[Rfam]
Rfam assigns this 114-nucleotide RNA from Actinomadura litoris to the family "TPP riboswitch aptamer (THI element)". Lineage of the source: Bacteria > Bacillati > Actinomycetes > Thermomonosporaceae > Actinomadura. Rfam describes the family as follows. Vitamin B(1) in its active form thiamin pyrophosphate (TPP) is an essential coenzyme that is synthesised by coupling of pyrimidine and thiazole moieties in bacteria.
RNA sequence: GGGCGAGAGCGCGGGAGUCCGGUGCGACCGGGCUGAGAGGGCGGCUGAACGGGCCGCCGACCGCUACGACCUGAUCCGGAUCAUGCCGGCGAAGGGAGCGCGCAUGGAGAUCGU
Numbered sequence: 001g002g003g004c005g006a007g008a009g010c011g012c013g014g015g016a017g018u019c020c021g022g023u024g025c026g027a028c029c030g031g032g033c034u035g036a037g038a039g040g041g042c043g044g045c046u047g048a049a050c051g052g053g054c055c056g057c058c059g060a061c062c063g064c065u066a067c068g069a070c071c072u073g074a075u076c077c078g079g080a081u082c083a084u085g086c087c088g089g090c091g092a093a094g095g096g097a098g099c100g101c102g103c104a105u106g107g108a109g110a111u112c113g114u
Base pairs, nucleotide, nucleotide: 007101009099010098011064012063013062014061017033018032019031020030021029040058041057042056043055044054045053046052070095071094072093076089077088078087079086